Background
Eukaryotic large subunit ribosomal RNA: a 597-nucleotide part of an RNA from Allomyces macrogynus. Taxonomically the source falls in Allomyces macrogynus (Eukaryota, Fungi, Blastocladiomycetes, Blastocladiaceae). The sequence is in the family's curated seed alignment. For this family Rfam cites "Crystal structure of the ribosome at 5.5 A resolution" (Yusupov et al., Science, 2001).

RNA sequence: CGGGGAAAGAAGACCCUGUUGAGCUUGACUCUAGUUUGGCAUUGUGAAAAGACAUAGGGGGUGUAGCAUAAGUGGGAGAGUUUCGGCUCGAUCUUGAAAUACCACUACCCUUAUCGUUUUUUUACUUAUUUGAUGAAAAAGGGUUGGGAGCAAUCCCAUCUUCUAGCAUUAACUCGGCGUCAGUCGAGGACCUUUGUCAAAGACAUGGUCAGAUGGGGAGUUUGGCUGGGGCGGCACAUCUGUUAAAGAAUAACGCAGGUGUCCCAAGGGCAACUCAUCGAGAACAGAAAUCUCGAGUAGAACAAAAGGGUAAAAGUUGCCUUGAUUUUGAUUUUCAGUGUGAAUACAAACCAUGAAAGUGUGGCCUAUCGAUCCUUUAGUUGCUCGGAAUUUGAGCCUAGAGGUGUCAGAAAAGUUACCACAGGGAUAACUGGCUUGUGGCAGCCAAGCGUUCAUAGCGACGUUGCUUUUUGAUCCUUCGAUGUCGGCUCUUCCUAUCAUAUUGAAGCAGAAUUCAAUAAGUGUUGGAUUGUUCACCCACUAAUAGGGAACGUGAGCUGGGUUUAGACCGUCGUGAGACAGGUUAGUUUUACCCUA
Numbered sequence: 001c002g003g004g005g006a007a008a009g010a011a012g013a014c015c016c017u018g019u020u021g022a023g024c025u026u027g028a029c030u031c032u033a034g035u036u037u038g039g040c041a042u043u044g045u046g047a048a049a050a051g052a053c054a055u056a057g058g059g060g061g062u063g064u065a066g067c068a069u070a071a072g073u074g075g076g077a078g079a080g081u082u083u084c085g086g087c088u089c090g091a092u093c094u095u096g097a098a099a100u101a102c103c104a105c106u107a108c109c110c111u112u113a114u115c116g117u118u119u120u121u122u123u124a125c126u127u128a129u130u131u132g133a134u135g136a137a138a139a140a141g142g143g144u145u146g147g148g149a150g151c152a153a154u155c156c157c158a159u160c161u162u163c164u165a166g167c168a169u170u171a172a173c174u175c176g177g178c179g180u181c182a183g184u185c186g187a188g189g190a191c192c193u194u195u196g197u198c199a200a201a202g203a204c205a206u207g208g209u210c211a212g213a214u215g216g217g218g219a220g221u222u223u224g225g226c227u228g229g230g231g232c233g234g235c236a237c238a239u240c241u242g243u244u245a246a247a248g249a250a251u252a253a254c255g256c257a258g259g260u261g262u263c264c265c266a267a268g269g270g271c272a273a274c275u276c277a278u279c280g281a282g283a284a285c286a287g288a289a290a291u292c293u294c295g296a297g298u299a300g301a302a303c304a305a306a307a308g309g310g311u312a313a314a315a316g317u318u319g320c321c322u323u324g325a326u327u328u329u330g331a332u333u334u335u336c337a338g339u340g341u342g343a344a345u346a347c348a349a350a351c352c353a354u355g356a357a358a359g360u361g362u363g364g365c366c367u368a369u370c371g372a373u374c375c376u377u378u379a380g381u382u383g384c385u386c387g388g389a390a391u392u393u394g395a396g397c398c399u400a401g402a403g404g405u406g407u408c409a410g411a412a413a414a415g416u417u418a419c420c421a422c423a424g425g426g427a428u429a430a431c432u433g434g435c436u437u438g439u440g441g442c443a444g445c446c447a448a449g450c451g452u453u454c455a456u457a458g459c460g461a462c463g464u465u466g467c468u469u470u471u472u473g474a475u476c477c478u479u480c481g482a483u484g485u486c487g488g489c490u491c492u493u494c495c496u497a498u499c500a501u502a503u504u505g506a507a508g509c510a511g512a513a514u515u516c517a518a519u520a521a522g523u524g525u526u527g528g529a530u531u532g533u534u535c536a537c538c539c540a541c542u543a544a545u546a547g548g549g550a551a552c553g554u555g556a557g558c559u560g561g562g563u564u565u566a567g568a569c570c571g572u573c574g575u576g577a578g579a580c581a582g583g584u585u586a587g588u589u590u591u592a593c594c595c596u597a
Stems, first nucleotide, its partner, number of pairs: 003596003007591002015425004020421002022417005028221004035213006044125010054114007071106005078089002129201005139194004147156002173188005224237001225235003238260006263364002269321006275301002278296006302311002326350003331345004352361003375403006383397004434475001436473001438472001440468006449459002486561001487559004491553001492550005499524002502519006526540003530536001567585004571580003